A member of the RNA family "TPP riboswitch aptamer (THI element)" from Spiroplasma eriocheiris, 100 nucleotides long. Vitamin B(1) in its active form thiamin pyrophosphate (TPP) is an essential coenzyme that is synthesised by coupling of pyrimidine and thiazole moieties in bacteria. Taxonomically the source falls in Spiroplasma (Bacteria, Bacillati, Mollicutes, Spiroplasmataceae).

RNA sequence: AGUAAUUGACAGAGGUAGUUUAUUAAAUAAUAAACUUGAGAAAUACUCUUCGAACCUGAUCUAGUUAAUACUAGCGUAGGGAGUUCAAAUUAUGAUGAAU
Numbered sequence: 001a002g003u004a005a006u007u008g009a010c011a012g013a014g015g016u017a018g019u020u021u022a023u024u025a026a027a028u029a030a031u032a033a034a035c036u037u038g039a040g041a042a043a044u045a046c047u048c049u050u051c052g053a054a055c056c057u058g059a060u061c062u063a064g065u066u067a068a069u070a071c072u073a074g075c076g077u078a079g080g081g082a083g084u085u086c087a088a089a090u091u092a093u094g095a096u097g098a099a100u
Stems, first nucleotide, its partner, number of pairs: 006088004011049004016043001017036007055080004061074004